About this RNA:
ZMP/ZTP riboswitch aptamer (pfl RNA motif): an 89-nucleotide RNA sequence from Demequina mangrovi. Lineage of the source: Bacteria > Bacillati > Actinomycetes > Micrococcales > Demequina. Pairs were carried over by alignment from the consensus structure, which is taken from published work. A search with the family's covariance model found it, with a score of 46 bits. On this family, see Jones and Ferre-D'Amare, Nat Struct Mol Biol 2015: "Recognition of the bacterial alarmone ZMP through long-distance association of two RNA subdomains".

RNA sequence: CGGGCCUGCCGCAACUGGCGCAGUGGGCUCACCCACGGGGAGCGGCAAGGAGAUCUCUCGACUGCUGGUCGCACGCCUGGGCCACUGGU
Numbered sequence: 001c002g003g004g005c006c007u008g009c010c011g012c013a014a015c016u017g018g019c020g021c022a023g024u025g026g027g028c029u030c031a032c033c034c035a036c037g038g039g040g041a042g043c044g045g046c047a048a049g050g051a052g053a054u055c056u057c058u059c060g061a062c063u064g065c066u067g068g069u070c071g072c073a074c075g076c077c078u079g080g081g082c083c084a085c086u087g088g089u
Base pairs, nucleotide, nucleotide: 005049007047008046009045010044011043012042015039016038017077018076019075020074023036024035025034026033066084067083068082069081070080